A member of the RNA family "Lysine riboswitch aptamer" from Desulfosporosinus cupriresistens, 189 nucleotides long. The match comes from Rfam's covariance-model search (113 bits).
[Rfam]
RNA sequence: AGGUGUGGUAGAGGCGCGAAUGACAAAAGUACCAUGGAGGAAGCUGCGUAAACUGAUGAGACCGUGGAAAAGGGGAUUUCGCCGAAGUCCAAAAAUUGCGUAGUUUUUGGAGCUGGGUCUGUGGUUAAGAACUGCAGGACUGUCACGUGAUGUUUUAGACACUACAUCGCGUGGAGAACUACUCCCAAC
Numbered sequence: 001a002g003g004u005g006u007g008g009u010a011g012a013g014g015c016g017c018g019a020a021u022g023a024c025a026a027a028a029g030u031a032c033c034a035u036g037g038a039g040g041a042a043g044c045u046g047c048g049u050a051a052a053c054u055g056a057u058g059a060g061a062c063c064g065u066g067g068a069a070a071a072g073g074g075g076a077u078u079u080c081g082c083c084g085a086a087g088u089c090c091a092a093a094a095a096u097u098g099c100g101u102a103g104u105u106u107u108u109g110g111a112g113c114u115g116g117g118u119c120u121g122u123g124g125u126u127a128a129g130a131a132c133u134g135c136a137g138g139a140c141u142g143u144c145a146c147g148u149g150a151u152g153u154u155u156u157a158g159a160c161a162c163u164a165c166a167u168c169g170c171g172u173g174g175a176g177a178a179c180u181a182c183u184c185c186c187a188a189c
Stems, first nucleotide, its partner, number of pairs: 007183005016082005024074001032067006086114003089110008115141002118138008143174011